[Rfam]
Nucleotides: 051
Stems, first nucleotide, its partner, number of pairs: 003047005009020004023048001029038003
Number, partner (000 for none) and nucleotide at each position: 001000a002000u003047c004046g005045u006044u007043c008000a009020a010019c011018c012017a013000g014000a015000u016000u017012u018011g019010g020009u021000c022000g023048g024000a025000a026000g027000u028000a029038g030037g031036c032000a033000a034000u035000c036031g037030c038029c039000g040000a041000a042000g043007g044006a045005a046004c047003g048023c049000a050000c051000c

This 51-nucleotide RNA sequence belongs to the Rfam family "Glutamine riboswitch aptamer (glnA leader)". For this family Rfam cites "Bacterial aptamers that selectively bind glutamine" (Ames and Breaker, RNA Biol, 2011). Gene Ontology term of the family: glutamine binding. The sequence is in the family's curated seed alignment.